Nucleotides: 187
Base pairs, nucleotide, nucleotide: 019080020079022077023076024075026073029070030069032067036060037059039057040056041055042054043053044052045051046050106181108179109178110177111176112175129158131156134153135152136151
Number, partner (000 for none) and nucleotide at each position: 001000c002000c003000c004000u005000u006000c007000u008000u009000u010000u011000u012000a013000a014000a015000a016000g017000c018000a019080c020079c021000a022077u023076g024075c025000c026073a027000a028000a029070a030069u031000c032067a033000u034000c035000a036060g037059g038000c039057c040056u041055a042054a043053g044052c045051u046050u047000u048000u049000u050046a051045a052044g053043c054042u055041u056040a057039g058000c059037u060036c061000u062000g063000g064000c065000g066000a067032u068000a069030a070029u071000g072000c073026u074000a075024g076023u077022a078000u079020g080019g081000u082000u083000u084000g085000u086000g087000a088000u089000a090000a091000a092000g093000a094000a095000g096000g097000a098000a099000g100000a101000a102000u103000a104000a105000a106181g107000a108179c109178a110177c111176a112175g113000c114000u115000u116000c117000g118000c119000a120000a121000a122000u123000g124000a125000g126000u127000g128000u129158a130000g131156g132000a133000g134153g135152g136151a137000c138000c139000u140000c141000u142000u143000u144000c145000c146000u147000a148000a149000u150000g151136u152135c153134c154000a155000g156131u157000g158129u159000c160000c161000u162000a163000u164000g165000u166000c167000u168000c169000a170000a171000g172000a173000u174000u175112c176111u177110g178109u179108g180000c181106u182000a183000c184000a185000a186000c187000c
Source information: The record is a 187-nucleotide sequence from Astyanax mexicanus, which matches "Small nucleolar RNA SNORA81" in Rfam. The family has 28 seed sequences and 1,161 matches in Rfam 15.1. Gene Ontology terms of the family: RNA processing and nucleolus. Taxonomically the source falls in Astyanax (Eukaryota, Neopterygii, Teleostei, Osteoglossocephalai). It is annotated as an H/ACA-box small nucleolar RNA. The literature on the family includes a 2005 paper in Nucleic Acids Res by Gu et al., "A novel experimental approach for systematic identification of box H/ACA snoRNAs from eukaryotes".